[Rfam]
RNA sequence: GGUCGGUGAUGAACAGUAAAAGGUCUGAUUACCCACAAUCCUCUCCUGCGGCCCUCUGGCUCCCAGCAGCCCCCGCUGUCUGUCCCGUCAUGCUCCAGUGCUGCAUGGCGGUCCAGCGGCUGCUGACACACACAGGAAGUGACAUCACGGCGAGGCUGUUCUCAGAGCGGCGGCCUCCGUGUGACUGACCUCCGACACAACCAAUCAGCACGGAGCGCGGGGCCGCGGAGGGGGAGGGGGGCUGAUCUCAAGUUUUCAAGCUGAGGCC
Numbered sequence: 001g002g003u004c005g006g007u008g009a010u011g012a013a014c015a016g017u018a019a020a021a022g023g024u025c026u027g028a029u030u031a032c033c034c035a036c037a038a039u040c041c042u043c044u045c046c047u048g049c050g051g052c053c054c055u056c057u058g059g060c061u062c063c064c065a066g067c068a069g070c071c072c073c074c075g076c077u078g079u080c081u082g083u084c085c086c087g088u089c090a091u092g093c094u095c096c097a098g099u100g101c102u103g104c105a106u107g108g109c110g111g112u113c114c115a116g117c118g119g120c121u122g123c124u125g126a127c128a129c130a131c132a133c134a135g136g137a138a139g140u141g142a143c144a145u146c147a148c149g150g151c152g153a154g155g156c157u158g159u160u161c162u163c164a165g166a167g168c169g170g171c172g173g174c175c176u177c178c179g180u181g182u183g184a185c186u187g188a189c190c191u192c193c194g195a196c197a198c199a200a201c202c203a204a205u206c207a208g209c210a211c212g213g214a215g216c217g218c219g220g221g222g223c224c225g226c227g228g229a230g231g232g233g234g235a236g237g238g239g240g241g242c243u244g245a246u247c248u249c250a251a252g253u254u255u256u257c258a259a260g261c262u263g264a265g266g267c268c
Base pairs, nucleotide, nucleotide: 001268002267003266004265038246039245040244043230044229045228046227047225048224060215061214062213063212064125065124066123067122068121069120070119085111086110087109088108089107090106091105092104093103133194135193136192137191139189140188152177153176154175155174156173157172158171159170160169

Annotation:
Small Cajal body specific RNA 6: a 268-nucleotide RNA from Salarias fasciatus. A reference for the family is Darzacq et al. (2002), "Cajal body-specific small nuclear RNAs: a novel class of 2'-O-methylation and pseudouridylation guide RNAs", EMBO J. The source organism's lineage runs through Eukaryota, Deuterostomia, Clupeocephala, Acanthomorphata and Salarias. The family has 17 seed sequences and 1,309 matches in Rfam 15.1. It scores 95 bits against the family's covariance model. Its family is annotated with nucleolus and RNA processing in the Gene Ontology. Pairs were carried over by alignment from the consensus structure, which is taken from published work. By type it is a small Cajal body RNA. U88 is small Cajal body specific RNA (scaRNA). scaRNAs are a novel class of small nuclear RNAs which localise to the Cajal bodies.